[Rfam]
Shown here is a 67-nucleotide RNA from Collimonas fungivorans, a member of the family "Betaproteobacteria toxic small RNA".
On this family, see Kimelman et al., Genome Res 2012: "A vast collection of microbial genes that are toxic to bacteria".
Lineage of the source: Bacteria > Pseudomonadota > Betaproteobacteria > Oxalobacteraceae > Collimonas fungivorans.
Rfam 15.1 lists 951 matches to the family in 508 species.
Rfam describes the family as follows. Overexpression in amino aid rich medium attenuates growth, suggesting role in repressing amino acid intake and metabolism.
RNA sequence: GGUCUCCUCCAACUCUCCCUAAGUUUUGGAUUUAGCCCGCUGCCGCAAGGCUGGCGGGCUUUUUUUA
Numbered sequence: 001g002g003u004c005u006c007c008u009c010c011a012a013c014u015c016u017c018c019c020u021a022a023g024u025u026u027u028g029g030a031u032u033u034a035g036c037c038c039g040c041u042g043c044c045g046c047a048a049g050g051c052u053g054g055c056g057g058g059c060u061u062u063u064u065u066u067a
Base pairs, nucleotide, nucleotide: 008030009029010028011027012026015023034060035059036058037057038056039055040054041053
Dot-bracket structure: .......(((((..(.......)..)))))...((((((((...........)))))))).......